The record is a 192-nucleotide RNA sequence from Rhizobium deserti, which matches "Rhizobiales sRNA Atu_C9" in Rfam. A search with the family's covariance model found it, with a score of 119 bits. The source organism's lineage runs through Bacteria, Pseudomonadati, Pseudomonadota, Hyphomicrobiales and Rhizobium. For this family Rfam cites "Deep sequencing uncovers numerous small RNAs on all four replicons of the plant pathogen Agrobacterium tumefaciens" (Wilms et al., RNA Biol, 2012). The family's consensus secondary structure was predicted with WAR.
[Rfam]
RNA sequence: CGUUAACGCAAGGAGGCAGACAUGGGACGCAUUUAUCCUCUUAAUGUCCUGAUAGUCGGUGCAGCGUUUCUUUUCGUCGUCUCGAUGCUUUUCAUCUGAGACUGUAGCCUUUCCUCAUUCACAUCCACAUCUGUGAUCGCCUGACACUUUGCCCGCUGCCAAAAGCGCAUGUUCCAGUGGAACAUGCGCUUU
Numbered sequence: 001c002g003u004u005a006a007c008g009c010a011a012g013g014a015g016g017c018a019g020a021c022a023u024g025g026g027a028c029g030c031a032u033u034u035a036u037c038c039u040c041u042u043a044a045u046g047u048c049c050u051g052a053u054a055g056u057c058g059g060u061g062c063a064g065c066g067u068u069u070c071u072u073u074u075c076g077u078c079g080u081c082u083c084g085a086u087g088c089u090u091u092u093c094a095u096c097u098g099a100g101a102c103u104g105u106a107g108c109c110u111u112u113c114c115u116c117a118u119u120c121a122c123a124u125c126c127a128c129a130u131c132u133g134u135g136a137u138c139g140c141c142u143g144a145c146a147c148u149u150u151g152c153c154c155g156c157u158g159c160c161a162a163a164a165g166c167g168c169a170u171g172u173u174c175c176a177g178u179g180g181a182a183c184a185u186g187c188g189c190u191u192u
Stems, first nucleotide, its partner, number of pairs: 015048004024040003162192013